The record is a 298-nucleotide sequence from Scytalidium sp. 3C, which matches "A. fumigatus sRNA Afu_309" in Rfam.
[Rfam]
RNA sequence: UCAACUUUUACAACCACAGAUCUGUGCCCAGCGAUCCCUUCGUCACCUUUUUGGCGGCGUAAGGUUGAUUGCUGCGGCAGUUCGUUCGCCAAUGGAGCCAUCCGCCUCUUGAGGUAAAUUUAUGGUGUCAAUCUUCCGACCGACAGAUCUCAGAAAGACCGGUCCUCACGAAGCUUGAGCUCGCUGUAAAAGGCUUGAGCUCAGUGGACGAGUGUACCGGAGGUGUCAUAUUCCAGCUCUCUUUACCGAUGGCCGUUGGUCUCUGAGGUUAGGGAAAAAUCAUGACAAGCCUACAUUC
Numbered sequence: 001u002c003a004a005c006u007u008u009u010a011c012a013a014c015c016a017c018a019g020a021u022c023u024g025u026g027c028c029c030a031g032c033g034a035u036c037c038c039u040u041c042g043u044c045a046c047c048u049u050u051u052u053g054g055c056g057g058c059g060u061a062a063g064g065u066u067g068a069u070u071g072c073u074g075c076g077g078c079a080g081u082u083c084g085u086u087c088g089c090c091a092a093u094g095g096a097g098c099c100a101u102c103c104g105c106c107u108c109u110u111g112a113g114g115u116a117a118a119u120u121u122a123u124g125g126u127g128u129c130a131a132u133c134u135u136c137c138g139a140c141c142g143a144c145a146g147a148u149c150u151c152a153g154a155a156a157g158a159c160c161g162g163u164c165c166u167c168a169c170g171a172a173g174c175u176u177g178a179g180c181u182c183g184c185u186g187u188a189a190a191a192g193g194c195u196u197g198a199g200c201u202c203a204g205u206g207g208a209c210g211a212g213u214g215u216a217c218c219g220g221a222g223g224u225g226u227c228a229u230a231u232u233c234c235a236g237c238u239c240u241c242u243u244u245a246c247c248g249a250u251g252g253c254c255g256u257u258g259g260u261c262u263c264u265g266a267g268g269u270u271a272g273g274g275a276a277a278a279a280u281c282a283u284g285a286c287a288a289g290c291c292u293a294c295a296u297u298c
Stems, first nucleotide, its partner, number of pairs: 018150008026078003029074003033070004037064004041059002047054002086142001088140001090138001093130003097126005162217002173205002177202006183194002222291003225286005238275005245269003251261004
A reference for the family is Jochl et al. (2008), "Small ncRNA transcriptome analysis from Aspergillus fumigatus suggests a novel mechanism for regulation of protein synthesis", Nucleic Acids Res. The family has 10 seed sequences and 663 matches in Rfam 15.1.